[Rfam]
RNA sequence: AGCGUUUUGUGUUCACUGCAGACGUUGAUUUAACGUCACGCAAUUAAGGCACGUGGUGAAUGCCAAAGGGG
Dot-bracket structure: ..(.((..((((((((.((...(.((((((...........)))))).)...)).))))))))..)).)..
Numbered sequence: 001a002g003c004g005u006u007u008u009g010u011g012u013u014c015a016c017u018g019c020a021g022a023c024g025u026u027g028a029u030u031u032a033a034c035g036u037c038a039c040g041c042a043a044u045u046a047a048g049g050c051a052c053g054u055g056g057u058g059a060a061u062g063c064c065a066a067a068g069g070g071g
Stems, first nucleotide, its partner, number of pairs: 003069001005067002009063008018054002023049001025047006

Shown here is a 71-nucleotide RNA from Buteo japonicus, a member of the family "mir-124 microRNA precursor family". Gene Ontology terms of the family: RISC complex and miRNA-mediated post-transcriptional gene silencing. For this family Rfam cites "Computational identification of Drosophila microRNA genes" (Lai et al., Genome Biol, 2003). The base pairs follow the family's consensus structure, which was predicted with PFOLD. Rfam 15.1 lists 2,215 matches to the family in 905 species. The organism belongs to Buteo, within Eukaryota.